[Rfam]
RNA: c-di-AMP riboswitch aptamer (ydaO/yuaA leader)
Organism: Nonomuraea wenchangensis
RNA sequence: GCGGGAGACACGCCCAAUUCCCGCAAGGGAAACCGGGGACCCGCCGAUGGCGCCCGCCGCACGCCAUCACUGGGGUGAAUCCGAAACGUUCGGUAGGGCUCCUCCGGCCCGAACCCGUCAGCUAACCCGGUAGGCGUCGAGGAAGGGAGCC
Dot-bracket structure: ..........((((...(((........)))((((((....((...........................))(((.....((((.....))))..((((.......))))...))).........)))))).))))...............
Numbered sequence: 001g002c003g004g005g006a007g008a009c010a011c012g013c014c015c016a017a018u019u020c021c022c023g024c025a026a027g028g029g030a031a032a033c034c035g036g037g038g039a040c041c042c043g044c045c046g047a048u049g050g051c052g053c054c055c056g057c058c059g060c061a062c063g064c065c066a067u068c069a070c071u072g073g074g075g076u077g078a079a080u081c082c083g084a085a086a087c088g089u090u091c092g093g094u095a096g097g098g099c100u101c102c103u104c105c106g107g108c109c110c111g112a113a114c115c116c117g118u119c120a121g122c123u124a125a126c127c128c129g130g131u132a133g134g135c136g137u138c139g140a141g142g143a144a145g146g147g148a149g150c151c
Stems, first nucleotide, its partner, number of pairs: 011136004018031003032131006042072002073116003081093004096110004